[Rfam]
RNA sequence: ACAUGAAAACCGCUUAAUCCUGAAAAGCAGGAGCGGGGGAACCGGCGUGCCUUGUGCACAUGGGGUGAAGUCUAAAUGACAGGGAACUCUUAAUCCCUAACCCGUCAGCUAACCUCGCAGGCGAUUAAGAGAACUGAC
Numbered sequence: 001a002c003a004u005g006a007a008a009a010c011c012g013c014u015u016a017a018u019c020c021u022g023a024a025a026a027g028c029a030g031g032a033g034c035g036g037g038g039g040a041a042c043c044g045g046c047g048u049g050c051c052u053u054g055u056g057c058a059c060a061u062g063g064g065g066u067g068a069a070g071u072c073u074a075a076a077u078g079a080c081a082g083g084g085a086a087c088u089c090u091u092a093a094u095c096c097c098u099a100a101c102c103c104g105u106c107a108g109c110u111a112a113c114c115u116c117g118c119a120g121g122c123g124a125u126u127a128a129g130a131g132a133a134c135u136g137a138c
Stems, first nucleotide, its partner, number of pairs: 011123004018032003033118006043062002063103003071079002082097004